[Rfam]
RNA sequence: AGUGAGUAUAGAGGUGCAUUGACCAAGAGUAGGCUACAAGAAGAUGAUGAGAACUAAAGAUUGUAGUUGAAAGGGGAAUUUGCCGAAGUGAAUAUUGGCUUAUCACUUUAUUCACUGGUGCUGUAUUGAAUAAAUACAGUACUGUCAUAUAGCAAUUGCUAUAUGGAGGGCUAUCUCACGC
Numbered sequence: 001a002g003u004g005a006g007u008a009u010a011g012a013g014g015u016g017c018a019u020u021g022a023c024c025a026a027g028a029g030u031a032g033g034c035u036a037c038a039a040g041a042a043g044a045u046g047a048u049g050a051g052a053a054c055u056a057a058a059g060a061u062u063g064u065a066g067u068u069g070a071a072a073g074g075g076g077a078a079u080u081u082g083c084c085g086a087a088g089u090g091a092a093u094a095u096u097g098g099c100u101u102a103u104c105a106c107u108u109u110a111u112u113c114a115c116u117g118g119u120g121c122u123g124u125a126u127u128g129a130a131u132a133a134a135u136a137c138a139g140u141a142c143u144g145u146c147a148u149a150u151a152g153c154a155a156u157u158g159c160u161a162u163a164u165g166g167a168g169g170g171c172u173a174u175c176u177c178a179c180g181c
Stems, first nucleotide, its partner, number of pairs: 006176001008174004016083003023076002032068008087116008097106001117143011145166007
RNA: Lysine riboswitch aptamer